[Rfam]
RNA sequence: CCAAACACGUUUCCUUAUCAUUUCUUUUAUCCAGUUUUCAUCACCACUGGACGGAGAACUGAUAAGGGCCUGUGAGGGA
Numbered sequence: 001c002c003a004a005a006c007a008c009g010u011u012u013c014c015u016u017a018u019c020a021u022u023u024c025u026u027u028u029a030u031c032c033a034g035u036u037u038u039c040a041u042c043a044c045c046a047c048u049g050g051a052c053g054g055a056g057a058a059c060u061g062a063u064a065a066g067g068g069c070c071u072g073u074g075a076g077g078g079a
Base pairs, nucleotide, nucleotide: 012068013067014066015065016064017063018062019061020060022058023057024056025055026054027053030050031049
RNA: mir-184 microRNA precursor family